[Rfam]
RNA sequence: UCCGAAGGCAGGUAAGCCACUGACUGACGCACAUUGCGCCCCUUCUUAACCCCACUGUGCGUGUGACAGCGGCUAACCAGUCUUUGGGCGUCCAUCAC
Numbered sequence: 001u002c003c004g005a006a007g008g009c010a011g012g013u014a015a016g017c018c019a020c021u022g023a024c025u026g027a028c029g030c031a032c033a034u035u036g037c038g039c040c041c042c043u044u045c046u047u048a049a050c051c052c053c054a055c056u057g058u059g060c061g062u063g064u065g066a067c068a069g070c071g072g073c074u075a076a077c078c079a080g081u082c083u084u085u086g087g088g089c090g091u092c093c094a095u096c097a098c
Base pairs, nucleotide, nucleotide: 005084006083007082008081009080011078012077015074016073017072018071020069021068022067024065025063026062028061029060030059031058032057033056035054036053
Rfam assigns this 98-nucleotide RNA sequence from Scleropages formosus to the family "mir-210 microRNA precursor family". Rfam 15.1 lists 790 matches to the family in 722 species. Pairs were carried over by alignment from the consensus structure, which was predicted with WAR.